[Rfam]
RNA: Glycine riboswitch aptamer
RNA sequence: AUGAAGGGAGUGGAAGAGACCCUUUUACCAGGGCGCCGAAGGAGCAAGCUUUCCCGGUCGGGGUGACGGGGGAGGGAAACUCUCAGGCAAAAGUACCGCUCCCGGACC
Numbered sequence: 001a002u003g004a005a006g007g008g009a010g011u012g013g014a015a016g017a018g019a020c021c022c023u024u025u026u027a028c029c030a031g032g033g034c035g036c037c038g039a040a041g042g043a044g045c046a047a048g049c050u051u052u053c054c055c056g057g058u059c060g061g062g063g064u065g066a067c068g069g070g071g072g073a074g075g076g077a078a079a080c081u082c083u084c085a086g087g088c089a090a091a092a093g094u095a096c097c098g099c100u101c102c103c104g105g106a107c108c
Stems, first nucleotide, its partner, number of pairs: 006103008020033004035088003038084002042082003049074008